[Rfam]
RNA sequence: AGUCCCCCUAGCAUUGCAGGUGUGGCUGCUGUGUCAUGUGUGAGUCAGUAGGUGGCAGAGAGGAGAGAGGCUAAGUUUCCUAUGCUCACUGCUCUGGCCUAUGAACAUCUAAAUGAUUAGUAGCCUAAUAUU
Numbered sequence: 001a002g003u004c005c006c007c008c009u010a011g012c013a014u015u016g017c018a019g020g021u022g023u024g025g026c027u028g029c030u031g032u033g034u035c036a037u038g039u040g041u042g043a044g045u046c047a048g049u050a051g052g053u054g055g056c057a058g059a060g061a062g063g064a065g066a067g068a069g070g071c072u073a074a075g076u077u078u079c080c081u082a083u084g085c086u087c088a089c090u091g092c093u094c095u096g097g098c099c100u101a102u103g104a105a106c107a108u109c110u111a112a113a114u115g116a117u118u119a120g121u122a123g124c125c126u127a128a129u130a131u132u
Base pairs, nucleotide, nucleotide: 003057005055006054007052008051009050011045012044017042018041021038022037023036024035025034026033065129068126069125070124071123072122073121083115084114086112088110090107091106093104094103
The family of this 132-nucleotide RNA from Mus musculus is "Small nucleolar RNA SNORA17". The literature on the family includes a 1997 paper in J Mol Biol by Ofengand and Bakin, "Mapping to nucleotide resolution of pseudouridine residues in large subunit ribosomal RNAs from representative eukaryotes, prokaryotes, archaebacteria, mitochondria and chloroplasts". By type it is an H/ACA-box small nucleolar RNA. Its family is annotated with nucleolus and RNA processing in the Gene Ontology. Rfam 15.1 lists 5,784 matches to the family in 673 species.